[Rfam]
RNA sequence: UAAAAGGGUUCGUCGCCAGUGUGGCGGCAGGCCGCAGCCGAAAGGUUGAGGCCUGCGUGAAUGGCAAUCAAGACAUUUGCACAACACAAUUUUUAUGCCCGGGUCGGCCUGGCACCUUUUGCCGGUCUGUCCCU
Numbered sequence: 001u002a003a004a005a006g007g008g009u010u011c012g013u014c015g016c017c018a019g020u021g022u023g024g025c026g027g028c029a030g031g032c033c034g035c036a037g038c039c040g041a042a043a044g045g046u047u048g049a050g051g052c053c054u055g056c057g058u059g060a061a062u063g064g065c066a067a068u069c070a071a072g073a074c075a076u077u078u079g080c081a082c083a084a085c086a087c088a089a090u091u092u093u094u095a096u097g098c099c100c101g102g103g104u105c106g107g108c109c110u111g112g113c114a115c116c117u118u119u120u121g122c123c124g125g126u127c128u129g130u131c132c133c134u
Base pairs, nucleotide, nucleotide: 008085009084010083013027014026015025016024017023028055029054030053031052032051033050035048036047037046038045039044057080058079059078060077061076062075063074102132103131105129106127107126108125109124111123112122113121114120
Dot-bracket structure: .......(((..(((((.....)))))((((((.(((((....))))).)))))).(((((((..........)))))))..)))................((.(((((.((((.....)))))))).).))..
The family of this 134-nucleotide sequence from Acanthamoeba castellanii is "U11 spliceosomal RNA". For this family Rfam cites "Evolution of spliceosomal snRNA genes in metazoan animals" (Marz et al., J Mol Evol, 2008). The family's RNA type in Rfam is spliceosomal small nuclear RNA. Taxonomically the source falls in Acanthamoeba castellanii (Eukaryota, Discosea, Longamoebia, Acanthamoeba).